Source information:
The family of this 71-nucleotide RNA sequence from Rhodobacter xanthinilyticus is "putative aminoglycoside riboswitch / attI site". Lineage of the source: Bacteria > Pseudomonadati > Pseudomonadota > Alphaproteobacteria > Rhodobacter. For this family Rfam cites "Riboswitch control of aminoglycoside antibiotic resistance" (Jia et al., Cell, 2013). From the family's description: Conserved RNA structure found upstream of the bacterial aminoglycosides antibiotic-resistant genes: aminoglycoside acetyl transferase (AAC) and aminoglycoside adenyl transferase (AAD). It has putative short open reading frame (ORF) that encode leader peptide upstream of the resistance gene. 75 nucleotide long sequence from the first ribosome binding site (SD1) up to the coding sequence was shown to have the regulatory role, and it was considered the minima functional RNA. Aminoglycosides bind to specific regions of AAC/AAD 5' leader and induce change in the RNA structure. The drug binding induces expression of the resistance protein. The match comes from Rfam's covariance-model search (81 bits). The family's RNA type in Rfam is cis-regulatory element.
RNA sequence: GGAGCAGCAACGAUGUUACGCAGCAGGGCAGUCGCCCUAAAACAAAGUUAGGCAUCACAAAGUACAGCAUC
Numbered sequence: 001g002g003a004g005c006a007g008c009a010a011c012g013a014u015g016u017u018a019c020g021c022a023g024c025a026g027g028g029c030a031g032u033c034g035c036c037c038u039a040a041a042a043c044a045a046a047g048u049u050a051g052g053c054a055u056c057a058c059a060a061a062g063u064a065c066a067g068c069a070u071c
Base pairs, nucleotide, nucleotide: 006017008015009014020056023053024052026037027036028035029034038050039049040048059070062068063067